Record summary: A member of the RNA family "Small nucleolar RNA snR60/Z15/Z230/Z193/J17" from Cyphomyrmex costatus, 90 nucleotides long. For this family Rfam cites "Guide RNAs with 5' caps and novel box C/D snoRNA-like domains for modification of snRNAs in metazoa" (Tycowski et al., Curr Biol, 2004). NCBI's taxonomy places the organism under Eukaryota, Eumetazoa, Pancrustacea, Hexapoda, Cyphomyrmex. It is annotated as a C/D-box small nucleolar RNA. A search with the family's covariance model found it, with a score of 63 bits.
[Rfam]
RNA sequence: AUAUAAUUACAUGAUGACUGUAUAGUUCAACUGAAUUUAUCUUGACGAUUACUUAAUAUUAUAGUCUUUCGCUCCUAUCUGAUAUUGUUU
Numbered sequence: 001a002u003a004u005a006a007u008u009a010c011a012u013g014a015u016g017a018c019u020g021u022a023u024a025g026u027u028c029a030a031c032u033g034a035a036u037u038u039a040u041c042u043u044g045a046c047g048a049u050u051a052c053u054u055a056a057u058a059u060u061a062u063a064g065u066c067u068u069u070c071g072c073u074c075c076u077a078u079c080u081g082a083u084a085u086u087g088u089u090u
Stems, first nucleotide, its partner, number of pairs: 004087004